[Rfam]
RNA sequence: GUGCUGCAUUAAGAGUUGGGAAUUCCAUGCCAACCUGCUUUUCAAAAGGAAAAGUAAGGUGGACGGUUGAAAAGCCGAUGUGGCUCACCAGAGCAAUCCAAACCCGCUUG
Numbered sequence: 001g002u003g004c005u006g007c008a009u010u011a012a013g014a015g016u017u018g019g020g021a022a023u024u025c026c027a028u029g030c031c032a033a034c035c036u037g038c039u040u041u042u043c044a045a046a047a048g049g050a051a052a053a054g055u056a057a058g059g060u061g062g063a064c065g066g067u068u069g070a071a072a073a074g075c076c077g078a079u080g081u082g083g084c085u086c087a088c089c090a091g092a093g094c095a096a097u098c099c100a101a102a103c104c105c106g107c108u109u110g
Base pairs, nucleotide, nucleotide: 006081007080008079009078010077015028017027018026019025020024030062031061034059035058036057037055038054039053041106083094084093085092086091
SAM-I/IV (S-adenosyl methionine) riboswitch aptamer: a 110-nucleotide RNA from Neisseria meningitidis. For this family Rfam cites "The aptamer core of SAM-IV riboswitches mimics the ligand-binding site of SAM-I riboswitches" (Weinberg et al., RNA, 2008). Its family is annotated with S-adenosylmethionine metabolic process and regulation of gene expression in the Gene Ontology.